A member of the RNA family "Purine riboswitch aptamer" from Clostridium beijerinckii, 102 nucleotides long. Pairs were carried over by alignment from the consensus structure, which is taken from published work.
RNA sequence: CAACAGUUCAUACAAAAGACUCGUAUAUUUCCGAUAUUAUGGUUGGAAAGUCUCUACCUGCUAUCCGUAAAUUAGCAGACUACGAGGUAGUGUUUUAGUGCU
Numbered sequence: 001c002a003a004c005a006g007u008u009c010a011u012a013c014a015a016a017a018g019a020c021u022c023g024u025a026u027a028u029u030u031c032c033g034a035u036a037u038u039a040u041g042g043u044u045g046g047a048a049a050g051u052c053u054c055u056a057c058c059u060g061c062u063a064u065c066c067g068u069a070a071a072u073u074a075g076c077a078g079a080c081u082a083c084g085a086g087g088u089a090g091u092g093u094u095u096u097a098g099u100g101c102u
Base pairs, nucleotide, nucleotide: 018088020086021085022084023083024082025081029049030048032046034044058078059077060076061075062074063073